Rfam assigns this 125-nucleotide RNA sequence from Cricetulus griseus to the family "Small nucleolar RNA SNORA28". NCBI's taxonomy places the organism under Eukaryota, Craniata, Dipnotetrapodomorpha, Muroidea, Cricetulus. It is annotated as an H/ACA-box small nucleolar RNA.
RNA sequence: AAGCAAUACUCUGUAAAAGACAAACAGAACUAUCUGAUGUAUUUGAGCUCGCUCUAGCAAAGAAGUCUAACCUAUUCCAGUGUUGUCUUCCCCACAAAACAAGCUAUCAUAGAGGCUUAAAAGCA
Numbered sequence: 001a002a003g004c005a006a007u008a009c010u011c012u013g014u015a016a017a018a019g020a021c022a023a024a025c026a027g028a029a030c031u032a033u034c035u036g037a038u039g040u041a042u043u044u045g046a047g048c049u050c051g052c053u054c055u056a057g058c059a060a061a062g063a064a065g066u067c068u069a070a071c072c073u074a075u076u077c078c079a080g081u082g083u084u085g086u087c088u089u090c091c092c093c094a095c096a097a098a099a100c101a102a103g104c105u106a107u108c109a110u111a112g113a114g115g116c117u118u119a120a121a122a123g124c125a
Stems, first nucleotide, its partner, number of pairs: 009047003012041004018035003022031001063118006073111003079105003086099001088097002
ACA28 is a member of the H/ACA class of snoRNA that guide the sites of modification of uridines to pseudouridines.